Editing element of GABA-3 exon 9: a 54-nucleotide sequence from Gasterosteus aculeatus.
[Rfam]
RNA sequence: AAAGUAGCCUAUGCCACGGCCAUGGAUUGGUUCAUCGCUGUGUGUUUCGCCUUC
Number, nucleotide and partner (000 for none) at each position: 001a000002a053003a052004g000005u000006a000007g050008c049009c000010u000011a046012u000013g045014c044015c042016a041017c040018g039019g038020c037021c000022a035023u034024g033025g032026a031027u000028u000029g000030g000031u026032u025033c024034a023035u022036c000037g020038c019039u018040g017041u016042g015043u000044g014045u013046u011047u000048c000049g008050c007051c000052u003053u002054c000

The family's consensus secondary structure is taken from published work. It is annotated as a cis-regulatory element. It scores 68 bits against the family's covariance model. The organism belongs to Gasterosteus, within Eukaryota. The family has 52 seed sequences and 4,208 matches in Rfam 15.1. On this family, see Ohlson et al., RNA 2007: "Editing modifies the GABA(A) receptor subunit alpha3".